[Rfam]
RNA sequence: AGGGGAUCGCCGCCUAAUCGUUUUCGAACGAGCCGGGGAACCAAUCUUUCCGGGGUGAAUCCGCGCGAGCGGUAGGGAUCACUUCCGUCCCGAACCCGUCAGCUAACUCGGUCGGCGGCCGACGGAAGGAACA
Numbered sequence: 001a002g003g004g005g006a007u008c009g010c011c012g013c014c015u016a017a018u019c020g021u022u023u024u025c026g027a028a029c030g031a032g033c034c035g036g037g038g039a040a041c042c043a044a045u046c047u048u049u050c051c052g053g054g055g056u057g058a059a060u061c062c063g064c065g066c067g068a069g070c071g072g073u074a075g076g077g078a079u080c081a082c083u084u085c086c087g088u089c090c091c092g093a094a095c096c097c098g099u100c101a102g103c104u105a106a107c108u109c110g111g112u113c114g115g116c117g118g119c120c121g122a123c124g125g126a127a128g129g130a131a132c133a
Stems, first nucleotide, its partner, number of pairs: 011117004018031003032112006042052001053097003061072004075091004
The record is a 133-nucleotide RNA from Paractinoplanes atraurantiacus, which matches "c-di-AMP riboswitch aptamer (ydaO/yuaA leader)" in Rfam. A search with the family's covariance model found it, with a score of 88 bits. The organism belongs to Paractinoplanes, within Bacteria. The pairing is the family consensus, mapped onto this sequence. This family represents a conserved RNA structure found upstream of the ydaO and yuaA genes in Bacillus subtilis and related genes in other bacteria. Rfam links the family to the GO terms cyclic-di-AMP binding and regulation of gene expression.